[Rfam]
RNA sequence: GAUUGCGGUGAUAACCACAUGAAAUUCAAGCUCAACAGACAGGAUUGCAGGUUUUUCUCAGUCGAGAAAAUUAUUUUCGUGACGAUAACCCGCUGAUCUGAGCAAUC
Numbered sequence: 001g002a003u004u005g006c007g008g009u010g011a012u013a014a015c016c017a018c019a020u021g022a023a024a025u026u027c028a029a030g031c032u033c034a035a036c037a038g039a040c041a042g043g044a045u046u047g048c049a050g051g052u053u054u055u056u057c058u059c060a061g062u063c064g065a066g067a068a069a070a071u072u073a074u075u076u077u078c079g080u081g082a083c084g085a086u087a088a089c090c091c092g093c094u095g096a097u098c099u100g101a102g103c104a105a106u107c
Stems, first nucleotide, its partner, number of pairs: 001107006
This 107-nucleotide sequence from Papaver nudicaule belongs to the Rfam family "Small nucleolar RNA Z107/R87". The organism belongs to Papaver, within Eukaryota. Its family is annotated with nucleolus and RNA processing in the Gene Ontology. Rfam 15.1 lists 783 matches to the family in 221 species. A search with the family's covariance model found it, with a score of 83 bits. Pairs were carried over by alignment from the consensus structure, which was predicted with RNAfold.